[Rfam]
RNA: mir-302 microRNA precursor family
Organism: Equus caballus
Nucleotides: 069
Stems, first nucleotide, its partner, number of pairs: 001069003005065001007063002010060002013057006020050002023047003027043002
Number, partner (000 for none) and nucleotide at each position: 001069c002068c003067a004000c005065c006000a007063c008062u009000u010060a011059a012000a013057u014056g015055u016054g017053g018052g019000u020050g021049u022000u023047c024046u025045u026000g027043c028042u029000u030000u031000g032000a033000a034000a035000u036000u037000a038000a039000a040000a041000a042028a043027g044000a045025a046024a047023g048000u049021a050020c051000u052018u053017c054016c055015a056014u057013a058000c059011u060010u061000u062008a063007g064000a065005g066000a067003u068002g069001g